[Rfam]
RNA sequence: AAGACUAUACUUUCAGGAAUCAUUUCUAUAGUUUCUGAUUUGAGAAAUGUGUUUCUAGAGUGUAUGGUCUCGCCAACCACGAUGAUGAGUUGUGAUAUUCCCUUGUGAGCAUGAAGCUGAUAGAUACUAAUGAUUUGUUUCAUAUAUUGUCUGUCAUUGAUGAUUGUUCAUUGCUUCCUGGAGGAGCAGUGAAAGAGGGAAUAUGUUCAGAGUGGU
Numbered sequence: 001a002a003g004a005c006u007a008u009a010c011u012u013u014c015a016g017g018a019a020u021c022a023u024u025u026c027u028a029u030a031g032u033u034u035c036u037g038a039u040u041u042g043a044g045a046a047a048u049g050u051g052u053u054u055c056u057a058g059a060g061u062g063u064a065u066g067g068u069c070u071c072g073c074c075a076a077c078c079a080c081g082a083u084g085a086u087g088a089g090u091u092g093u094g095a096u097a098u099u100c101c102c103u104u105g106u107g108a109g110c111a112u113g114a115a116g117c118u119g120a121u122a123g124a125u126a127c128u129a130a131u132g133a134u135u136u137g138u139u140u141c142a143u144a145u146a147u148u149g150u151c152u153g154u155c156a157u158u159g160a161u162g163a164u165u166g167u168u169c170a171u172u173g174c175u176u177c178c179u180g181g182a183g184g185a186g187c188a189g190u191g192a193a194a195g196a197g198g199g200a201a202u203a204u205g206u207u208c209a210g211a212g213u214g215g216u
Base pairs, nucleotide, nucleotide: 001041002040003039005037007034009032010031011030015027016026017025018024049065050064051063054062076216077215078214079213080212095204096203097202098201099200100199101198102197103196104195106193109167110166111165119155120154121153122152125149126148128146130143131142132141133140170190171189172188173187174186175185176184177183
The family of this 216-nucleotide sequence from Amphiprion percula is "Small nucleolar RNA U3". The source organism's lineage runs through Eukaryota, Metazoa, Chordata, Actinopterygii and Amphiprion. Rfam links the family to the GO terms RNA processing and nucleolus. From the family's description: Small nucleolar RNAs (snoRNAs) are involved in the processing and modification of rRNA in the nucleolus. There are two main classes of snoRNAs: the box C/D class, and the box H/ACA class. U3 snoRNA is a member of the box C/D class. Indeed, the box C/D element is a subset of the six short sequence elements found in all U3 snoRNAs, namely boxes A, A', B, C, C', and D. The U3 snoRNA secondary structure is characterised by a small 5' domain (with boxes A and A'), and a larger 3' domain (with boxes B, C, C', and D), the two domains being linked by a single-stranded hinge. A search with the family's covariance model found it, with a score of 154 bits.